Rfam assigns this 76-nucleotide sequence from Cinara cedri to the family "mir-87 microRNA precursor family". Rfam 15.1 lists 420 matches to the family in 285 species. Its family is annotated with miRNA-mediated post-transcriptional gene silencing and RISC complex in the Gene Ontology. A reference for the family is Ruby et al. (2007), "Evolution, biogenesis, expression, and target predictions of a substantially expanded set of Drosophila microRNAs", Genome Res. It scores 54 bits against the family's covariance model. NCBI's taxonomy places the organism under Eukaryota, Protostomia, Allotriocarida, Cinara, Cinara. The base pairs follow the family's consensus structure, which was predicted with RNAalifold.
RNA sequence: CACAUGUCGCCUGAAUCUUGCUUUGACCUAAUACAUUUUGCAAACAAGGUGAGCAAAGUUUCAGGCGUGUAAGUGA
Numbered sequence: 001c002a003c004a005u006g007u008c009g010c011c012u013g014a015a016u017c018u019u020g021c022u023u024u025g026a027c028c029u030a031a032u033a034c035a036u037u038u039u040g041c042a043a044a045c046a047a048g049g050u051g052a053g054c055a056a057a058g059u060u061u062c063a064g065g066c067g068u069g070u071a072a073g074u075g076a
Base pairs, nucleotide, nucleotide: 002074003073005071006070007069008067009066010065011064012063013062014061015059016058018056019055021053022052023051027049028048029047